Rfam assigns this 86-nucleotide RNA sequence from Ciconia maguari to the family "Selenocysteine transfer RNA". It scores 62 bits against the family's covariance model.
RNA sequence: GCCCAGAUGGCCCUCAGUGGUCUGAGGUGCAGGCUUCAAACCUGUAGCUGCCUAGUGACAGAGCGGUUCAUUUCCACCUUUUGGGU
Numbered sequence: 001g002c003c004c005a006g007a008u009g010g011c012c013c014u015c016a017g018u019g020g021u022c023u024g025a026g027g028u029g030c031a032g033g034c035u036u037c038a039a040a041c042c043u044g045u046a047g048c049u050g051c052c053u054a055g056u057g058a059c060a061g062a063g064c065g066g067u068u069c070a071u072u073u074c075c076a077c078c079u080u081u082u083g084g085g086u
Stems, first nucleotide, its partner, number of pairs: 001086007009078001012027006028046006048061003052057001063077001065075002
Taxonomically the source falls in Ciconia (Eukaryota, Teleostomi, Sauropsida, Aequornithes).